The record is a 78-nucleotide RNA from Nocardioides luteus, which matches "ZMP/ZTP riboswitch aptamer (pfl RNA motif)" in Rfam.
RNA sequence: UGACGAGCACACGACUGGCGCAGGUGGGGGACCACCGGGGAGUGUAAAGAGACGGCAUCGACCGCCUGGGUGCCCCUC
Numbered sequence: 001u002g003a004c005g006a007g008c009a010c011a012c013g014a015c016u017g018g019c020g021c022a023g024g025u026g027g028g029g030g031a032c033c034a035c036c037g038g039g040g041a042g043u044g045u046a047a048a049g050a051g052a053c054g055g056c057a058u059c060g061a062c063c064g065c066c067u068g069g070g071u072g073c074c075c076c077u078c
Stems, first nucleotide, its partner, number of pairs: 009045004015039002017066004024035004055073005